[Rfam]
RNA sequence: GUCCGUUCAUCCCUUCGGGGACGCAUGAGAACUAAGCAUGGAACGGGGCUUAGU
Numbered sequence: 001g002u003c004c005g006u007u008c009a010u011c012c013c014u015u016c017g018g019g020g021a022c023g024c025a026u027g028a029g030a031a032c033u034a035a036g037c038a039u040g041g042a043a044c045g046g047g048g049c050u051u052a053g054u
Stems, first nucleotide, its partner, number of pairs: 004045005010021004031054007
RNA: Glutamine-II riboswitch aptamer